[Rfam]
RNA sequence: ACCACUGAGCCAUCUCACCAGCCCCUAAAAAUUUUCAAAAACAAACUAAAAAUAAAAAUAAAGGGCUGGUGAGAUGGCUCAGUGGU
Numbered sequence: 001a002c003c004a005c006u007g008a009g010c011c012a013u014c015u016c017a018c019c020a021g022c023c024c025c026u027a028a029a030a031a032u033u034u035u036c037a038a039a040a041a042c043a044a045a046c047u048a049a050a051a052a053u054a055a056a057a058a059u060a061a062a063g064g065g066c067u068g069g070u071g072a073g074a075u076g077g078c079u080c081a082g083u084g085g086u
Stems, first nucleotide, its partner, number of pairs: 002085023
Shown here is an 86-nucleotide sequence from Octodon degus, a member of the family "mir-3473 microRNA precursor family".
The family's consensus secondary structure was predicted with RNAalifold.